Notes: Small nucleolar RNA Z279/snoR105/snoR108: a 100-nucleotide RNA from Lathyrus oleraceus. The match comes from Rfam's covariance-model search (73 bits). Pairs were carried over by alignment from the consensus structure, which was predicted with PFOLD. Its family is annotated with nucleolus and RNA processing in the Gene Ontology. The literature on the family includes a 2002 paper in Curr Biol by Marker et al., "Experimental RNomics: identification of 140 candidates for small non-messenger RNAs in the plant Arabidopsis thaliana".
[Rfam]
RNA sequence: GAGAAAUGAUCGUCUAGUCUCGCAUUAAAUAUGCGAGUUGGGUGUCUGCCCUAAUCUUGGUUACGACAAUUGGGCACUCUCCUUUGACCAAUCUGAUCUC
Numbered sequence: 001g002a003g004a005a006a007u008g009a010u011c012g013u014c015u016a017g018u019c020u021c022g023c024a025u026u027a028a029a030u031a032u033g034c035g036a037g038u039u040g041g042g043u044g045u046c047u048g049c050c051c052u053a054a055u056c057u058u059g060g061u062u063a064c065g066a067c068a069a070u071u072g073g074g075c076a077c078u079c080u081c082c083u084u085u086g087a088c089c090a091a092u093c094u095g096a097u098c099u100c
Stems, first nucleotide, its partner, number of pairs: 001100004010090001012088003019037005040079007058072004
This family includes the plant snoRNAs known as Z279, snoR105 and snoR108. It is annotated as a C/D-box small nucleolar RNA. Clan: snoU13 clan.